[Rfam]
RNA sequence: GGUAUUGUUUACCCCACAUGGUAAGCCCCGGAACUUAUUAUGCUAUUGUAAACAAUGA
Numbered sequence: 001g002g003u004a005u006u007g008u009u010u011a012c013c014c015c016a017c018a019u020g021g022u023a024a025g026c027c028c029c030g031g032a033a034c035u036u037a038u039u040a041u042g043c044u045a046u047u048g049u050a051a052a053c054a055a056u057g058a
Base pairs, nucleotide, nucleotide: 006054007053008052009051010050011049012048017042018041019040020039021038022037023036024035025034

This 58-nucleotide sequence from Dolosigranulum pigrum belongs to the Rfam family "Ribosomal protein L13 leader". NCBI's taxonomy places the organism under Bacteria, Bacillota, Bacilli, Carnobacteriaceae, Dolosigranulum pigrum. The family's RNA type in Rfam is cis-regulatory leader.